[Rfam]
RNA: SAM (S-adenosyl methionine) riboswitch aptamer
RNA sequence: GGUCACGAGUAUCAGCGCACAGCCCCGGCUUGCUGAUCGGCAACCCUCCGUCCGUGGUGGGGUGCUCCGGGUGAGGACCUGGCCGGUCGAAUGAUGCCGGCAAGCACGGGCU
Numbered sequence: 001g002g003u004c005a006c007g008a009g010u011a012u013c014a015g016c017g018c019a020c021a022g023c024c025c026c027g028g029c030u031u032g033c034u035g036a037u038c039g040g041c042a043a044c045c046c047u048c049c050g051u052c053c054g055u056g057g058u059g060g061g062g063u064g065c066u067c068c069g070g071g072u073g074a075g076g077a078c079c080u081g082g083c084c085g086g087u088c089g090a091a092u093g094a095u096g097c098c099g100g101c102a103a104g105c106a107c108g109g110g111c112u
Stems, first nucleotide, its partner, number of pairs: 001079004009038001011037006021030002039066003044062003048057002082101006